[Rfam]
Rfam assigns this 82-nucleotide RNA sequence from Folsomia candida to the family "mir-46/mir-47/mir-281 microRNA precursor family".
Rfam links the family to the GO terms RISC complex and miRNA-mediated post-transcriptional gene silencing.
The family's consensus secondary structure was predicted with RNAalifold.
Nucleotides: 082
Base pairs, nucleotide, nucleotide: 014070015069016068017067018066020064021063022062025058026057027056028055031053032052033051035049036048
Number, partner (000 for none) and nucleotide at each position: 001000g002000a003000g004000c005000u006000u007000u008000a009000a010000c011000c012000u013000c014070g015069a016068a017067g018066a019000g020064a021063g022062c023000a024000a025058u026057c027056c028055g029000u030000c031053g032052a033051c034000a035049g036048u037000u038000u039000a040000g041000a042000c043000c044000a045000a046000a047000c048036a049035c050000u051033g052032u053031c054000a055028u056027g057026g058025a059000g060000a061000c062022g063021c064020u065000c066018u067017c068016u069015u070014u071000a072000a073000g074000g075000u076000g077000a078000a079000a080000u081000g082000c